[Rfam]
RNA sequence: GGGCCGGCUAUAGCCCAGCGGUUACUUCGGUUGCCAUAUUUGCUUUGCGUCUCGCCCCGUCAGGGGUUUGAUACCGCGGGCACCCCUGGCCCAUUU
Numbered sequence: 001g002g003g004c005c006g007g008c009u010a011u012a013g014c015c016c017a018g019c020g021g022u023u024a025c026u027u028c029g030g031u032u033g034c035c036a037u038a039u040u041u042g043c044u045u046u047g048c049g050u051c052u053c054g055c056c057c058c059g060u061c062a063g064g065g066g067u068u069u070g071a072u073a074c075c076g077c078g079g080g081c082a083c084c085c086c087u088g089g090c091c092c093a094u095u096u
Base pairs, nucleotide, nucleotide: 002091003090004089005088006087007086013081014080015079016078018077019076020075021074027071028070029069030068